The family of this 375-nucleotide RNA from Hoylesella saccharolytica is "Bacterial RNase P class A". A search with the family's covariance model found it, with a score of 198 bits.
RNA sequence: ACAGUGUUUCGGCUCUGCCGCCGGUAUGUUUUUAUACGGGAGGAAAGUCCGGGCAGCAUAGGAUGUUCCACUUCUGAAAAUAGAAGCUGUUGGUAACAGCAGGUGAAGAUAGAAGAAAAUAACCGCCUCGUUUUUACGCGGUAAGGGUGAGAAGGUGGUGUAAGAGACCACCAGCCGGCGGGUGAUCGUUGGGCUGUAUCUACUGGAAGCUGCAAGUUCGCGUAUACCAUCGUUUGAGGGUUAUCCGCCCGAUUCACUCCGAUGGAGGGUAGAACGCUUAAGCUGUAGGGCAACUUACAGUUUAGAUAAAUGGCAGGCACCUGUAAGACAAAUGUCGCACAGGGACAGAACCCGGCUUACAGAAGCACUGUUUUC
Numbered sequence: 001a002c003a004g005u006g007u008u009u010c011g012g013c014u015c016u017g018c019c020g021c022c023g024g025u026a027u028g029u030u031u032u033u034a035u036a037c038g039g040g041a042g043g044a045a046a047g048u049c050c051g052g053g054c055a056g057c058a059u060a061g062g063a064u065g066u067u068c069c070a071c072u073u074c075u076g077a078a079a080a081u082a083g084a085a086g087c088u089g090u091u092g093g094u095a096a097c098a099g100c101a102g103g104u105g106a107a108g109a110u111a112g113a114a115g116a117a118a119a120u121a122a123c124c125g126c127c128u129c130g131u132u133u134u135u136a137c138g139c140g141g142u143a144a145g146g147g148u149g150a151g152a153a154g155g156u157g158g159u160g161u162a163a164g165a166g167a168c169c170a171c172c173a174g175c176c177g178g179c180g181g182g183u184g185a186u187c188g189u190u191g192g193g194c195u196g197u198a199u200c201u202a203c204u205g206g207a208a209g210c211u212g213c214a215a216g217u218u219c220g221c222g223u224a225u226a227c228c229a230u231c232g233u234u235u236g237a238g239g240g241u242u243a244u245c246c247g248c249c250c251g252a253u254u255c256a257c258u259c260c261g262a263u264g265g266a267g268g269g270u271a272g273a274a275c276g277c278u279u280a281a282g283c284u285g286u287a288g289g290g291c292a293a294c295u296u297a298c299a300g301u302u303u304a305g306a307u308a309a310a311u312g313g314c315a316g317g318c319a320c321c322u323g324u325a326a327g328a329c330a331a332a333u334g335u336c337g338c339a340c341a342g343g344g345a346c347a348g349a350a351c352c353c354g355g356c357u358u359a360c361a362g363a364a365g366c367a368c369u370g371u372u373u374u375c
Stems, first nucleotide, its partner, number of pairs: 001371010011360001012318002015316005021040002024037005045358003049355005054212004061246004066208005071086005087102001089100004103203002107201005123146002125142003129138003154172006174194001175192007216275004227265005238250004282301008